[Rfam]
RNA sequence: UCAGCACGACAUCGAUGGCGACGUCAGCAACAACUGGCGUGUGGAGGUAGACUGACGAAAGUCAGCCCGGCGUAAGCCGCGAAUGGGUAACACCCAGGGUGCCUUGCAACAAUUCAACAUUUCGCCCCCGAUGCACAGAUGUCUGCUG
Number, nucleotide and partner (000 for none) at each position: 001u000002c148003a147004g146005c145006a000007c000008g143009a142010c141011a140012u139013c138014g000015a000016u000017g000018g000019c043020g042021a040022c039023g038024u037025c036026a035027g034028c000029a000030a000031c000032a000033a000034c027035u026036g025037g024038c023039g022040u021041g000042u020043g019044g105045a104046g103047g102048u000049a000050g000051a000052c065053u064054g063055a062056c061057g000058a000059a000060a000061g056062u055063c054064a053065g052066c000067c000068c000069g000070g000071c000072g000073u000074a000075a000076g000077c000078c000079g000080c000081g000082a000083a000084u096085g095086g094087g093088u092089a000090a000091c000092a088093c087094c086095c085096a084097g000098g000099g000100u000101g000102c047103c046104u045105u044106g000107c000108a000109a000110c000111a000112a000113u000114u000115c000116a000117a000118c000119a000120u000121u000122u000123c000124g000125c000126c000127c000128c000129c000130g000131a000132u000133g000134c000135a000136c000137a000138g013139a012140u011141g010142u009143c008144u000145g005146c004147u003148g002

The family of this 148-nucleotide RNA from Pectobacterium atrosepticum is "EFASI RNA". It is one of the family's seed sequences. It is annotated as a small RNA. NCBI's taxonomy places the organism under Bacteria, Pseudomonadati, Gammaproteobacteria, Pectobacteriaceae, Pectobacterium atrosepticum.